[Rfam]
RNA sequence: AGCCCAACAGAGCUCGUAAUUUAUUCCUUAAUAUUUGCUGCAUAGGGAUCUUUGAUAUUUUUAAAUGAUUUUUUUAGUGCU
Number, nucleotide and partner (000 for none) at each position: 001a000002g000003c000004c000005c000006a000007a000008c000009a074010g073011a072012g071013c000014u000015c000016g000017u063018a062019a061020u000021u000022u000023a000024u000025u055026c054027c000028u000029u000030a000031a049032u048033a000034u046035u045036u044037g043038c000039u000040g000041c000042a000043u037044a036045g035046g034047g000048a032049u031050c000051u000052u000053u000054g026055a025056u000057a000058u000059u000060u000061u019062u018063a017064a000065a000066u000067g000068a000069u000070u000071u012072u011073u010074u009075u000076a000077g000078u000079g000080c000081u000
The record is an 81-nucleotide RNA sequence from Cavia porcellus, which matches "Stem loopII regulatory element in POLB" in Rfam. NCBI's taxonomy places the organism under Eukaryota, Eumetazoa, Craniata, Euteleostomi, Cavia. It scores 48 bits against the family's covariance model. For this family Rfam cites "Hairpin structure within the 3'UTR of DNA polymerase beta mRNA acts as a post-transcriptional regulatory element and interacts with Hax-1" (Sarnowska et al., Nucleic Acids Res, 2007). The family's consensus secondary structure is taken from published work.